Shown here is a 62-nucleotide sequence from Tolypothrix tenuis, a member of the family "Nitrogen stress-induced RNA 1". It scores 71 bits against the family's covariance model. Lineage of the source: Bacteria > Bacillati > Nostocales > Tolypothrix > Tolypothrix tenuis. By type it is a small RNA.

RNA sequence: UGGUAGAUGCACCCUGAUAACUAACUCCCCUAGCUGGCUGGUACCCACUAGGGGAUUUUUUU
Numbered sequence: 001u002g003g004u005a006g007a008u009g010c011a012c013c014c015u016g017a018u019a020a021c022u023a024a025c026u027c028c029c030c031u032a033g034c035u036g037g038c039u040g041g042u043a044c045c046c047a048c049u050a051g052g053g054g055a056u057u058u059u060u061u062u
Stems, first nucleotide, its partner, number of pairs: 002013003027054007036045002